[Rfam]
Shown here is a 47-nucleotide RNA sequence from Coffea canephora, a member of the family "Plastid-rpl16 group II-D1 intron". Plastid-rpl16 is a non-coding RNA (ncRNA) recognised in plastids. It was recognised in and intronic region of a ribosome rpl16 gene. The organism belongs to Coffea, within Eukaryota.
RNA sequence: AAAAGUUUUGAGACAAUAAAGACUAAGAAAAUUGACUCAAGAACAAA
Numbered sequence: 001a002a003a004a005g006u007u008u009u010g011a012g013a014c015a016a017u018a019a020a021g022a023c024u025a026a027g028a029a030a031a032u033u034g035a036c037u038c039a040a041g042a043a044c045a046a047a
Stems, first nucleotide, its partner, number of pairs: 007041002010038003014034004
Dot-bracket structure: ......((.(((.((((.............)))).))).))......

For this family Rfam cites "Retrograde signaling in plants: A critical review focusing on the GUN pathway and beyond" (Richter et al., Plant Commun, 2023).
A search with the family's covariance model found it, with a score of 62 bits.